[Rfam]
A member of the RNA family "L4-Archaeoglobi ribosomal protein leades" from Natronomonas salsuginis, 100 nucleotides long. The organism belongs to Natronomonas, within Archaea. The match comes from Rfam's covariance-model search (69 bits).
RNA sequence: CUGACGGGCGCGUCCGGGUCAAUUGCGGACUGCAACACCCGAUCUCUCUGCCGGUGCCACCAUCCAUGGCGGUCUCGGCGGGAGAGCGCGUCACCAUCAG
Numbered sequence: 001c002u003g004a005c006g007g008g009c010g011c012g013u014c015c016g017g018g019u020c021a022a023u024u025g026c027g028g029a030c031u032g033c034a035a036c037a038c039c040c041g042a043u044c045u046c047u048c049u050g051c052c053g054g055u056g057c058c059a060c061c062a063u064c065c066a067u068g069g070c071g072g073u074c075u076c077g078g079c080g081g082g083a084g085a086g087c088g089c090g091u092c093a094c095c096a097u098c099a100g
Stems, first nucleotide, its partner, number of pairs: 001100004008091006015041004023035005043085005049080006